[Rfam]
RNA sequence: CUCUUAUCAAGAGCGGCGGAGGGAAUAGGCCCUAUGAAGCCCGGCAACCUUAAAGCAUUAACCUGCUUGUAACGGUGCUAAAUCCUACAGGGUAAAAACCUGGAAGAUGAGAG
Numbered sequence: 001c002u003c004u005u006a007u008c009a010a011g012a013g014c015g016g017c018g019g020a021g022g023g024a025a026u027a028g029g030c031c032c033u034a035u036g037a038a039g040c041c042c043g044g045c046a047a048c049c050u051u052a053a054a055g056c057a058u059u060a061a062c063c064u065g066c067u068u069g070u071a072a073c074g075g076u077g078c079u080a081a082a083u084c085c086u087a088c089a090g091g092g093u094a095a096a097a098a099c100c101u102g103g104a105a106g107a108u109g110a111g112a113g
Stems, first nucleotide, its partner, number of pairs: 001113008013042001015041003021032003026087004043079004048075002050071001053068004083105001088102004093097001
This 113-nucleotide RNA sequence from Oceanobacillus profundus belongs to the Rfam family "SAM riboswitch aptamer (S box leader)". Gene Ontology term of the family: regulation of gene expression. A reference for the family is Grundy and Henkin (1998), "The S box regulon: a new global transcription termination control system for methionine and cysteine biosynthesis genes in gram-positive bacteria", Mol Microbiol. The match comes from Rfam's covariance-model search (85 bits).